[Rfam]
Rfam assigns this 248-nucleotide RNA sequence from Trogon melanurus to the family "Small nucleolar RNA SNORD17".
On this family, see Huttenhofer et al., EMBO J 2001: "RNomics: an experimental approach that identifies 201 candidates for novel, small, non-messenger RNAs in mouse".
From the family's description: The snoRNA HBI-43 belongs to the C/D family of snoRNAs, guiding 2'O-ribose methylation at position U3797 of the 28S rRNA. Pseudouridylation in position U3797 is predicted to be guided by the H/ACA snoRNA ACA48.
A search with the family's covariance model found it, with a score of 104 bits.
By type it is a C/D-box small nucleolar RNA.
Rfam links the family to the GO terms RNA processing and nucleolus.
RNA sequence: GUGAGGUGAUGACGAAGUUUAUCCAUUCGCCGAGUGCAGCGGUGCUGCCCUCCUGCAGCACCCCGGUUCCUGUCCUAGGGUCUGGGUGCUGUGUGGCCUCCAGACACCCUCCAGUCUCUUGGUGUCCUACUGGGGCUGCUGCGGUGUGUGGCUGGCUGCCUGCAGGAGGGGAGUGGUGCUGGCAGGGUUGGAGCCCCUCUUUUGGGGGGCCUCUGUCCUCACCGAGAUGAGGGAUGAUGUCUGAUCAC
Numbered sequence: 001g002u003g004a005g006g007u008g009a010u011g012a013c014g015a016a017g018u019u020u021a022u023c024c025a026u027u028c029g030c031c032g033a034g035u036g037c038a039g040c041g042g043u044g045c046u047g048c049c050c051u052c053c054u055g056c057a058g059c060a061c062c063c064c065g066g067u068u069c070c071u072g073u074c075c076u077a078g079g080g081u082c083u084g085g086g087u088g089c090u091g092u093g094u095g096g097c098c099u100c101c102a103g104a105c106a107c108c109c110u111c112c113a114g115u116c117u118c119u120u121g122g123u124g125u126c127c128u129a130c131u132g133g134g135g136c137u138g139c140u141g142c143g144g145u146g147u148g149u150g151g152c153u154g155g156c157u158g159c160c161u162g163c164a165g166g167a168g169g170g171g172a173g174u175g176g177u178g179c180u181g182g183c184a185g186g187g188u189u190g191g192a193g194c195c196c197c198u199c200u201u202u203u204g205g206g207g208g209g210c211c212u213c214u215g216u217c218c219u220c221a222c223c224g225a226g227a228u229g230a231g232g233g234a235u236g237a238u239g240u241c242u243g244a245u246c247a248c
Stems, first nucleotide, its partner, number of pairs: 010247003017240002020237001023233002026231004030226001034222002039183002042180001043178006049170002051167007061088001063086002066082001068080004093159006106147002108144001112138006119132001121131004185220002187217001189215004194209005